RNA sequence: UCGACCGUGAGGUCGAAUCUGAAGGAAGUCGGCGGCAAACCUCCAGUUCGAGGAACACGAACCUCAUAUAAGGCUAACGUUCGUCAGAUGAGGCUGCCAAACAAGUCAAAGUCUAUACUCCAAGGCGAAUGGGAGUAAAUGAGGUGAAUAGAUGGAGGGAAAGAUAGCGUU
Numbered sequence: 001u002c003g004a005c006c007g008u009g010a011g012g013u014c015g016a017a018u019c020u021g022a023a024g025g026a027a028g029u030c031g032g033c034g035g036c037a038a039a040c041c042u043c044c045a046g047u048u049c050g051a052g053g054a055a056c057a058c059g060a061a062c063c064u065c066a067u068a069u070a071a072g073g074c075u076a077a078c079g080u081u082c083g084u085c086a087g088a089u090g091a092g093g094c095u096g097c098c099a100a101a102c103a104a105g106u107c108a109a110a111g112u113c114u115a116u117a118c119u120c121c122a123a124g125g126c127g128a129a130u131g132g133g134a135g136u137a138a139a140u141g142a143g144g145u146g147a148a149u150a151g152a153u154g155g156a157g158g159g160a161a162a163g164a165u166a167g168c169g170u171u
Base pairs, nucleotide, nucleotide: 001016002015003014004013005012006011028171030169031168036163040158041157042156043155044154045153046149047148048147049146050145062144063143064142065141066140067139073136074135075134078131079130080129081128082127083126086114087113088112089111092107093106094105095104
RNA: Group II catalytic intron D1-D4-3
Organism: Paenibacillus baekrokdamisoli